[Rfam]
RNA: c-di-GMP-I riboswitch aptamer
RNA sequence: AAUUGAAAAAGGCACACCCACCGAAAGGUGGCGCCGCAAAGUCUCCGGCCUAAGGGAGAUUCUUCCUACGGUAGCGGGAUUGCCAGA
Numbered sequence: 001a002a003u004u005g006a007a008a009a010a011g012g013c014a015c016a017c018c019c020a021c022c023g024a025a026a027g028g029u030g031g032c033g034c035c036g037c038a039a040a041g042u043c044u045c046c047g048g049c050c051u052a053a054g055g056g057a058g059a060u061u062c063u064u065c066c067u068a069c070g071g072u073a074g075c076g077g078g079a080u081u082g083c084c085a086g087a
Base pairs, nucleotide, nucleotide: 012037013036018031019030020029021028022027040081041080042079043078045077046076047075048072049071050070055066056065057064058063